[Rfam]
RNA sequence: CAGUGAGGACGACCUCACGGAUCAAGGAUUCCGAGAGGACGACCUUC
Numbered sequence: 001c002a003g004u005g006a007g008g009a010c011g012a013c014c015u016c017a018c019g020g021a022u023c024a025a026g027g028a029u030u031c032c033g034a035g036a037g038g039a040c041g042a043c044c045u046u047c
Stems, first nucleotide, its partner, number of pairs: 001020001003018006035046004
The family of this 47-nucleotide RNA from Penaeus vannamei is "Guanidine-II riboswitch aptamer (mini-ykkC)". NCBI's taxonomy places the organism under Eukaryota, Bilateria, Panarthropoda, Eumalacostraca, Penaeus. The match comes from Rfam's covariance-model search (34 bits). Gene Ontology term of the family: regulation of gene expression. The family has 72 seed sequences and 1,589 matches in Rfam 15.1.